A member of the RNA family "Plant signal recognition particle RNA" from Marchantia polymorpha, 286 nucleotides long.
By type it is a non-coding RNA gene.
[Rfam]
RNA sequence: UCUGGGCGGCGUAGCGGCUGUCUGUGACCCGAGCGGGAGUAAGAGAGAUGGGAGCUGGGGCUCUCGCAGAGGACCGCUGGGAUCAUGUCGAAGGCACGUCCACUCGAAGCGUGGAGUCUCUGAUCUGGGCUCCUCGGCGGAAGCCAGGGGAGUCUGGGGGAUAAUGUGGAGGGCACAGCGUGAGGCGGGCGACCGAGCAGCGAUCACUUCCCGCUCUGCGCAGUCGAGGGAUCGCGUGCUUGUCAGUGAUCAUCCGACAUGAGGAGCUUCCUGCAACCUCUCUCUA
Numbered sequence: 001u002c003u004g005g006g007c008g009g010c011g012u013a014g015c016g017g018c019u020g021u022c023u024g025u026g027a028c029c030c031g032a033g034c035g036g037g038a039g040u041a042a043g044a045g046a047g048a049u050g051g052g053a054g055c056u057g058g059g060g061c062u063c064u065c066g067c068a069g070a071g072g073a074c075c076g077c078u079g080g081g082a083u084c085a086u087g088u089c090g091a092a093g094g095c096a097c098g099u100c101c102a103c104u105c106g107a108a109g110c111g112u113g114g115a116g117u118c119u120c121u122g123a124u125c126u127g128g129g130c131u132c133c134u135c136g137g138c139g140g141a142a143g144c145c146a147g148g149g150g151a152g153u154c155u156g157g158g159g160g161a162u163a164a165u166g167u168g169g170a171g172g173g174c175a176c177a178g179c180g181u182g183a184g185g186c187g188g189g190c191g192a193c194c195g196a197g198c199a200g201c202g203a204u205c206a207c208u209u210c211c212c213g214c215u216c217u218g219c220g221c222a223g224u225c226g227a228g229g230g231a232u233c234g235c236g237u238g239c240u241u242g243u244c245a246g247u248g249a250u251c252a253u254c255c256g257a258c259a260u261g262a263g264g265a266g267c268u269u270c271c272u273g274c275a276a277c278c279u280c281u282c283u284c285u286a
Stems, first nucleotide, its partner, number of pairs: 002039002004023007028037003042285007050278002054274002057270008067261002069254002072251002075248002078246001081244002092241008100230002103228005109221009119161003124158012136145003162166001168211005177204001179202003186195003
The base pairs follow the family's consensus structure, which is taken from published work.